[Rfam]
This 146-nucleotide RNA from Modestobacter sp. DSM 44400 belongs to the Rfam family "c-di-AMP riboswitch aptamer (ydaO/yuaA leader)".
It scores 63 bits against the family's covariance model.
Gene Ontology terms of the family: cyclic-di-AMP binding and regulation of gene expression.
RNA sequence: AUCCGGACUCCUCCCAAGCACGGGCAGGCGCGGGGAACCCACCUUAGAAGGAUCAGGCCCUCGGGCCGUGGGGUGAAGCCGCAGGAUGCGGCCGGGCAGCUCUCGCCCGAACCCGACAGCUAACCCCGCAGGCAGCGAGAGGCUCA
Dot-bracket structure: ............((...((........))((((((....((...........................))(((.....((((.....))))..((((.......))))...))).........)))))).))..............